Source information: Shown here is a 97-nucleotide RNA from Alysiella crassa, a member of the family "Bacterial small signal recognition particle RNA". About the family: The signal recognition particle (SRP) is a universally conserved ribonucleoprotein involved in the co-translational targeting of proteins to membranes. It is annotated as a non-coding RNA gene. Its family is annotated with SRP-dependent cotranslational protein targeting to membrane, signal sequence recognition and signal recognition particle, plasma membrane targeting in the Gene Ontology. Its Rfam clan is "SRP clan".
RNA sequence: AGCGGGUCUCCUUGCAUGAUGAUUCGGAGCAACGGGUCAGGGGCGGAAGCCAGCAGCCCACUCGGGAAAGUCAGUGCCAAGGGUCUGGCUCGCUACC
Numbered sequence: 001a002g003c004g005g006g007u008c009u010c011c012u013u014g015c016a017u018g019a020u021g022a023u024u025c026g027g028a029g030c031a032a033c034g035g036g037u038c039a040g041g042g043g044c045g046g047a048a049g050c051c052a053g054c055a056g057c058c059c060a061c062u063c064g065g066g067a068a069a070g071u072c073a074g075u076g077c078c079a080a081g082g083g084u085c086u087g088g089c090u091c092g093c094u095a096c097c
Stems, first nucleotide, its partner, number of pairs: 004091005009083006015074001017073004023067003027063003034059004042051003
Dot-bracket structure: ...((((((((((((.((((..(((.(((....((((....(((....)))....)))).))).)))..)))))...))))))...)))))......